[Rfam]
RNA sequence: GGCUACAUGGCCUAAUGGAUAAGGCAUCUGAUUCUGGAUCAGAAAAUUGAGGGUUGAAGUCCCUUCGUGGUCG
Numbered sequence: 001g002g003c004u005a006c007a008u009g010g011c012c013u014a015a016u017g018g019a020u021a022a023g024g025c026a027u028c029u030g031a032u033u034c035u036g037g038a039u040c041a042g043a044a045a046a047u048u049g050a051g052g053g054u055u056g057a058a059g060u061c062c063c064u065u066c067g068u069g070g071u072c073g
Stems, first nucleotide, its partner, number of pairs: 001072006010025004027043005049065005
Dot-bracket structure: ((((((...((((........)))).(((((.......))))).....(((((.......))))).)))))).

Notes:
This 73-nucleotide RNA from Lipotes vexillifer belongs to the Rfam family "tRNA". The base pairs follow the family's consensus structure, which is taken from published work. Its family is annotated with triplet codon-amino acid adaptor activity in the Gene Ontology.